Na+ riboswitch aptamer (DUF1646): a 46-nucleotide RNA from Pisciglobus halotolerans. NCBI's taxonomy places the organism under Bacteria, Bacillota, Bacilli, Carnobacteriaceae, Pisciglobus. It scores 51 bits against the family's covariance model. A reference for the family is White et al. (2022), "Na(+) riboswitches regulate genes for diverse physiological processes in bacteria", Nat Chem Biol. Rfam links the family to the GO terms regulation of gene expression and sodium ion binding.
[Rfam]
RNA sequence: GGUUGGGCAUUAGCUUUCAAGGUAUUUUCUUCUGGGGUGAGGAGAA
Numbered sequence: 001g002g003u004u005g006g007g008c009a010u011u012a013g014c015u016u017u018c019a020a021g022g023u024a025u026u027u028u029c030u031u032c033u034g035g036g037g038u039g040a041g042g043a044g045a046a
Stems, first nucleotide, its partner, number of pairs: 003020003006015003027046007